[Rfam]
RNA sequence: CUGUCCCCGCUCUGACGAAGGCUCAAGUCCCACUUGGGUUACUGACGUAGGCAGAGUGGGGUUGA
Numbered sequence: 001c002u003g004u005c006c007c008c009g010c011u012c013u014g015a016c017g018a019a020g021g022c023u024c025a026a027g028u029c030c031c032a033c034u035u036g037g038g039u040u041a042c043u044g045a046c047g048u049a050g051g052c053a054g055a056g057u058g059g060g061g062u063u064g065a
Base pairs, nucleotide, nucleotide: 002064003063005061006060007059008058009057010056011055012054013053014052016050020040021039022038023037024036025035026034027033028032